The family of this 266-nucleotide RNA from Syntrophomonas wolfei is "Bacterial large signal recognition particle RNA". By type it is a non-coding RNA gene. Its Rfam clan is "SRP clan". From the family's description: The signal recognition particle (SRP) is a universally conserved ribonucleoprotein involved in the co-translational targeting of proteins to membranes. The match comes from Rfam's covariance-model search (209 bits). Pairs were carried over by alignment from the consensus structure, which is taken from published work. The source organism's lineage runs through Bacteria, Bacillota, Clostridia, Eubacteriales and Syntrophomonas wolfei subsp. wolfei.

RNA sequence: CCGUGCUAGAUGGGGAGGUAGCGGUGCCCUGUAACCUGCAACCCGCUAUAGCAGGGUCGAAUUCCUGAGCCGAGGGUCUAUCUUGUGAGGUCCGGCUGGAAAAAGUGGCGUUGAAGUUUGGGUCCUUCGCAAUGAGAACCUUUGAACCGUGUCAGGUCCGGAAGGAAGCAGCACUAAGAAGUAAAUCUCAUGUGACGAAGGGAAGCCUGGAUGGAGCAAACUACUCCAGUAACGCUCGGAAGGUAUUCUCGAGGCCAGGUGCACGG
Numbered sequence: 001c002c003g004u005g006c007u008a009g010a011u012g013g014g015g016a017g018g019u020a021g022c023g024g025u026g027c028c029c030u031g032u033a034a035c036c037u038g039c040a041a042c043c044c045g046c047u048a049u050a051g052c053a054g055g056g057u058c059g060a061a062u063u064c065c066u067g068a069g070c071c072g073a074g075g076g077u078c079u080a081u082c083u084u085g086u087g088a089g090g091u092c093c094g095g096c097u098g099g100a101a102a103a104a105g106u107g108g109c110g111u112u113g114a115a116g117u118u119u120g121g122g123u124c125c126u127u128c129g130c131a132a133u134g135a136g137a138a139c140c141u142u143u144g145a146a147c148c149g150u151g152u153c154a155g156g157u158c159c160g161g162a163a164g165g166a167a168g169c170a171g172c173a174c175u176a177a178g179a180a181g182u183a184a185a186u187c188u189c190a191u192g193u194g195a196c197g198a199a200g201g202g203a204a205g206c207c208u209g210g211a212u213g214g215a216g217c218a219a220a221c222u223a224c225u226c227c228a229g230u231a232a233c234g235c236u237c238g239g240a241a242g243g244u245a246u247u248c249u250c251g252a253g254g255c256c257a258g259g260u261g262c263a264c265g266g
Stems, first nucleotide, its partner, number of pairs: 001266006009058003012030004017025001019023001035055005064259004069255003074250003080244005086238004093234002096229005105221002108217002116212008124201006130192002133190005140181004149174004157166003